[Rfam]
The record is a 369-nucleotide RNA from Promicromonospora sukumoe, which matches "transfer-messenger RNA" in Rfam. Taxonomically the source falls in Promicromonospora (Bacteria, Bacillati, Actinomycetes, Promicromonosporaceae). The match comes from Rfam's covariance-model search (161 bits). The family's RNA type in Rfam is non-coding RNA gene.
RNA sequence: GGGGCUGAUCGGUUUCGACGGUGGUCGUACUUCGAGGAGAAGCGGGCCGAGGAUGCAGGCUUAUCUCGUAAACGAUGCCUGUAAACCAAUAGUUGCCGAUAACUCGCGCAACGAGUUCGCCCUCGCCGCCUGAGCGAGCCCGAACUCCGUCGGCCUGGGAGACGCUUCCGUCCCAGUAGCCGGCGUCAUCUAGGAAGCCUCUGCUCGUAGCUCUCGUCAUCGGGGCUACGGGAACACUUAGAUGGCUGGGCCUGUCCGCGAACGUGUCUGCGCGAGCGCGGGGGCCGAGAAAAUCCAUAGCAGACUGCGCCCGGAGAAGUCCUCGAAAAGCGAUACCGGACCCGGGUUCGAUUCCCGGCAGCUCCACCC
Numbered sequence: 001g002g003g004g005c006u007g008a009u010c011g012g013u014u015u016c017g018a019c020g021g022u023g024g025u026c027g028u029a030c031u032u033c034g035a036g037g038a039g040a041a042g043c044g045g046g047c048c049g050a051g052g053a054u055g056c057a058g059g060c061u062u063a064u065c066u067c068g069u070a071a072a073c074g075a076u077g078c079c080u081g082u083a084a085a086c087c088a089a090u091a092g093u094u095g096c097c098g099a100u101a102a103c104u105c106g107c108g109c110a111a112c113g114a115g116u117u118c119g120c121c122c123u124c125g126c127c128g129c130c131u132g133a134g135c136g137a138g139c140c141c142g143a144a145c146u147c148c149g150u151c152g153g154c155c156u157g158g159g160a161g162a163c164g165c166u167u168c169c170g171u172c173c174c175a176g177u178a179g180c181c182g183g184c185g186u187c188a189u190c191u192a193g194g195a196a197g198c199c200u201c202u203g204c205u206c207g208u209a210g211c212u213c214u215c216g217u218c219a220u221c222g223g224g225g226c227u228a229c230g231g232g233a234a235c236a237c238u239u240a241g242a243u244g245g246c247u248g249g250g251c252c253u254g255u256c257c258g259c260g261a262a263c264g265u266g267u268c269u270g271c272g273c274g275a276g277c278g279c280g281g282g283g284g285c286c287g288a289g290a291a292a293a294u295c296c297a298u299a300g301c302a303g304a305c306u307g308c309g310c311c312c313g314g315a316g317a318a319g320u321c322c323u324c325g326a327a328a329a330g331c332g333a334u335a336c337c338g339g340a341c342c343c344g345g346g347u348u349c350g351a352u353u354c355c356c357g358g359c360a361g362c363u364c365c366a367c368c369c
Base pairs, nucleotide, nucleotide: 001365002364003363004362005361006360007359019338020337021336022335023334025332028329031327032326033325034324035323036322037321038320043313044312045311046310047309048068049067050066051065052064054083055082056081057080058079059078060077123143124142125141128139129138148185149184150183151182152181153180155176156175157174158173159172160171164199166197167196169194204232205231206230207229208228209227210226211225212224216247218245249286250285251284252283253282256281257280258279263274264273266305267304268303269302272298342358343357344356345355346354